[Rfam]
RNA sequence: AGUUUUGGUCGUAGAGUCGCGACCAACCAAAUCUAAAGAACGCUCAUUAGGA
Numbered sequence: 001a002g003u004u005u006u007g008g009u010c011g012u013a014g015a016g017u018c019g020c021g022a023c024c025a026a027c028c029a030a031a032u033c034u035a036a037a038g039a040a041c042g043c044u045c046a047u048u049a050g051g052a
Base pairs, nucleotide, nucleotide: 006025007024008023009022010021011020014045015044016043017042

6A RNA: a 52-nucleotide RNA.
By type it is a small RNA.